[Rfam]
RNA sequence: AACUCAAAUGUGUUAUUACACACACGUAUCGGCACAUACUCCGGGGUGCUUUGGCCUGGUCACAGGCAGGGUCGGCUGUAUGGGAUACGUGGAGGCAUAAC
Numbered sequence: 001a002a003c004u005c006a007a008a009u010g011u012g013u014u015a016u017u018a019c020a021c022a023c024a025c026g027u028a029u030c031g032g033c034a035c036a037u038a039c040u041c042c043g044g045g046g047u048g049c050u051u052u053g054g055c056c057u058g059g060u061c062a063c064a065g066g067c068a069g070g071g072u073c074g075g076c077u078g079u080a081u082g083g084g085a086u087a088c089g090u091g092g093a094g095g096c097a098u099a100a101c
Stems, first nucleotide, its partner, number of pairs: 023091008035082005041075003048072005
RNA: t44 RNA
Organism: Biostraticola tofi